[Rfam]
RNA: Bacillaceae-1 RNA
RNA sequence: AAGUAAGGUUCAGCGACUAAGAGCGCUACGUCUGCAUAUCUUCGUCGCUGUGACUCUCGUCCUGAGAG
Numbered sequence: 001a002a003g004u005a006a007g008g009u010u011c012a013g014c015g016a017c018u019a020a021g022a023g024c025g026c027u028a029c030g031u032c033u034g035c036a037u038a039u040c041u042u043c044g045u046c047g048c049u050g051u052g053a054c055u056c057u058c059g060u061c062c063u064g065a066g067a068g
Base pairs, nucleotide, nucleotide: 011050012049013048014047015046016045017044054068055067056066057065058064